[Rfam]
RNA sequence: GUCGUUCAUCUCUUUUAGAGAUCUCUUUAAAGGAGACGGAAGUAAGAGACAUAGUGUCCCUGAAGGAACGCGUG
Numbered sequence: 001g002u003c004g005u006u007c008a009u010c011u012c013u014u015u016u017a018g019a020g021a022u023c024u025c026u027u028u029a030a031a032g033g034a035g036a037c038g039g040a041a042g043u044a045a046g047a048g049a050c051a052u053a054g055u056g057u058c059c060c061u062g063a064a065g066g067a068a069c070g071c072g073u074g
Stems, first nucleotide, its partner, number of pairs: 003070005009036012039071001045061002
RNA: Glutamine riboswitch aptamer (glnA leader)